[Rfam]
RNA sequence: UUUAAUCUUCAGGGCAGGGUGAAAUUCCCGAUCGGCGGUAAAGUCCGCGAGCGAAACGAAAAAGGUUGAGCAGGAACUGGUGAAACUCCAGUACCGACAGUAUAGUCUGGAUGGAAGAAGAGGUUA
Numbered sequence: 001u002u003u004a005a006u007c008u009u010c011a012g013g014g015c016a017g018g019g020u021g022a023a024a025u026u027c028c029c030g031a032u033c034g035g036c037g038g039u040a041a042a043g044u045c046c047g048c049g050a051g052c053g054a055a056a057c058g059a060a061a062a063a064g065g066u067u068g069a070g071c072a073g074g075a076a077c078u079g080g081u082g083a084a085a086c087u088c089c090a091g092u093a094c095c096g097a098c099a100g101u102a103u104a105g106u107c108u109g110g111a112u113g114g115a116a117g118a119a120g121a122g123g124u125u126a
Stems, first nucleotide, its partner, number of pairs: 006121005017029003031106002033096002035048004043094002076092005098109003
Shown here is a 126-nucleotide RNA from Mannheimia varigena, a member of the family "FMN riboswitch aptamer (RFN element)". Pairs were carried over by alignment from the consensus structure, which is taken from published work.